[Rfam]
RNA sequence: GAAAAAACUGAAUCAUUGCCGUAGACAGCAGGUGCGAUUUGCCGCGUAAAUCCUGCCGAGGAAAAAUUGCUAUGAGCGUUUCAGCCUCUUUGUCUAUGUGCAAAGAGGCUUUUUCAAUGACAGG
Numbered sequence: 001g002a003a004a005a006a007a008c009u010g011a012a013u014c015a016u017u018g019c020c021g022u023a024g025a026c027a028g029c030a031g032g033u034g035c036g037a038u039u040u041g042c043c044g045c046g047u048a049a050a051u052c053c054u055g056c057c058g059a060g061g062a063a064a065a066a067u068u069g070c071u072a073u074g075a076g077c078g079u080u081u082c083a084g085c086c087u088c089u090u091u092g093u094c095u096a097u098g099u100g101c102a103a104a105g106a107g108g109c110u111u112u113u114u115c116a117a118u119g120a121c122a123g124g
Base pairs, nucleotide, nucleotide: 028056029055030054031053032052034045035044036043084109085108086107087106088105089104090103091102092101093100
About this RNA: The record is a 124-nucleotide RNA from Firmicutes bacterium CAG:102, which matches "Ribosomal protein L10 leader" in Rfam. Pairs were carried over by alignment from the consensus structure, which was predicted with CMfinder. Lineage of the source: Bacteria > Bacillati > Bacillota. It is annotated as a cis-regulatory leader.